[Rfam]
RNA sequence: AGUCGGCGGAAAUCAGUCAGUCAUAGCGCUGUCAACAAAACCCCAAAACCGUAAAAUUAGAGCAAUUCGCCUGGUUCCUCUUUAAAGCAAAACCAGGAGGCUCCGCCGACUCAGAGGGCACUGUGGGCUGAGCAAAAUGAAAAUUUGAGAGUUUCUCUCCAUUGCUUAGCCCUACCUCUAUCUUUU
Number, nucleotide and partner (000 for none) at each position: 001a000002g000003u000004c000005g000006g106007c105008g104009g103010a102011a000012a000013u000014c000015a000016g000017u000018c031019a030020g029021u000022c028023a000024u000025a000026g000027c000028g022029c020030u019031g018032u000033c000034a000035a000036c000037a000038a000039a000040a000041c000042c000043c000044c000045a000046a000047a000048a000049c000050c000051g000052u000053a000054a000055a000056a000057u000058u000059a000060g000061a000062g000063c000064a000065a000066u000067u000068c000069g000070c097071c096072u095073g000074g093075u092076u000077c000078c000079u000080c000081u000082u000083u000084a000085a000086a000087g000088c000089a000090a000091a000092a075093c074094c000095a072096g071097g070098a000099g000100g000101c000102u010103c009104c008105g007106c006107c000108g000109a000110c000111u000112c000113a179114g178115a177116g176117g175118g000119c000120a000121c000122u000123g000124u000125g172126g171127g170128c169129u000130g000131a166132g165133c164134a163135a162136a000137a000138u000139g000140a000141a000142a000143a000144u000145u000146u000147g000148a000149g000150a000151g000152u000153u000154u000155c000156u000157c000158u000159c000160c000161a000162u135163u134164g133165c132166u131167u000168a000169g128170c127171c126172c125173u000174a000175c117176c116177u115178c114179u113180a000181u000182c000183u000184u000185u000186u000

The family of this 186-nucleotide RNA sequence from Sterkiella histriomuscorum is "Ciliate telomerase RNA". For this family Rfam cites "Ciliate telomerase RNA structural features" (McCormick-Graham and Romero, Nucleic Acids Res, 1995). The organism belongs to Sterkiella, within Eukaryota. Clan: Telomerase clan. By type it is a non-coding RNA gene. Pairs were carried over by alignment from the consensus structure, which is taken from published work. Rfam describes the family as follows. Telomerase is a ribonucleoprotein reverse transcriptase that synthesises telomeric DNA. Telomerase RNAs differ greatly in sequence and structure between vertebrates, ciliates and yeasts, but they share a 5' pseudoknot structure close to the template sequence.